MIR1435 microRNA precursor family: a 200-nucleotide RNA from Oryza meyeriana. The match comes from Rfam's covariance-model search (109 bits). The family has 3 seed sequences and 1,765 matches in Rfam 15.1. Rfam links the family to the GO terms miRNA-mediated post-transcriptional gene silencing and RISC complex. Lineage of the source: Eukaryota > Euphyllophyta > Poales > Oryzeae > Oryza meyeriana.
RNA sequence: UAGUUUUGUCCUAAGUCGAACUUAGAGAAGUUUGACCAAGUUUAUAGAUGAAUGCAUCAAUAUCUACAACAACAAAUAUAUGCAUUAUCAAGACCUAUUUCCUGAUGGAUUUAAUGAAACUAAUUUAAUGUUGCAGAUGUUGAUGCAUUUUUCUAUAAACUCGGUCAAAGUUAGGGAAGUUUGACUUAGGACAAAACUAA
Numbered sequence: 001u002a003g004u005u006u007u008g009u010c011c012u013a014a015g016u017c018g019a020a021c022u023u024a025g026a027g028a029a030g031u032u033u034g035a036c037c038a039a040g041u042u043u044a045u046a047g048a049u050g051a052a053u054g055c056a057u058c059a060a061u062a063u064c065u066a067c068a069a070c071a072a073c074a075a076a077u078a079u080a081u082g083c084a085u086u087a088u089c090a091a092g093a094c095c096u097a098u099u100u101c102c103u104g105a106u107g108g109a110u111u112u113a114a115u116g117a118a119a120c121u122a123a124u125u126u127a128a129u130g131u132u133g134c135a136g137a138u139g140u141u142g143a144u145g146c147a148u149u150u151u152u153c154u155a156u157a158a159a160c161u162c163g164g165u166c167a168a169a170g171u172u173a174g175g176g177a178a179g180u181u182u183g184a185c186u187u188a189g190g191a192c193a194a195a196a197c198u199a200a
Stems, first nucleotide, its partner, number of pairs: 005195005011189013031169005045155004050150003055145003059141007067133002074126004